Rfam assigns this 145-nucleotide RNA sequence from Corchorus olitorius to the family "MIR396 microRNA precursor family".
RNA sequence: GGUCAUGCUUUUCCACAGCUUUCUUGAACUUUCUUUUGUUAUAUAACUCUGUUAGCUAAUCGAUUAAAGCUAUACAGCUGAUCUUUAUAUAUAUAGAGCAUAUUUAUAUAGGAAAGCUCAAGAAAGCUGUGGGAGAACAUGGCAA
Number, nucleotide and partner (000 for none) at each position: 001g000002g000003u142004c141005a140006u139007g138008c000009u000010u000011u000012u000013c132014c131015a130016c000017a128018g127019c126020u125021u124022u123023c000024u121025u120026g119027a118028a000029c116030u115031u114032u113033c112034u111035u110036u000037u000038g000039u000040u000041a000042u000043a000044u000045a000046a000047c000048u000049c000050u000051g000052u000053u000054a000055g000056c000057u000058a000059a000060u000061c000062g000063a000064u000065u000066a000067a000068a000069g000070c000071u000072a000073u000074a000075c000076a000077g000078c000079u000080g000081a000082u000083c000084u000085u000086u000087a000088u000089a000090u000091a000092u000093a000094u000095a000096g000097a000098g000099c000100a000101u000102a000103u000104u000105u000106a000107u000108a000109u000110a035111g034112g033113a032114a031115a030116g029117c000118u027119c026120a025121a024122g000123a022124a021125a020126g019127c018128u017129g000130u015131g014132g013133g000134a000135g000136a000137a000138c007139a006140u005141g004142g003143c000144a000145a000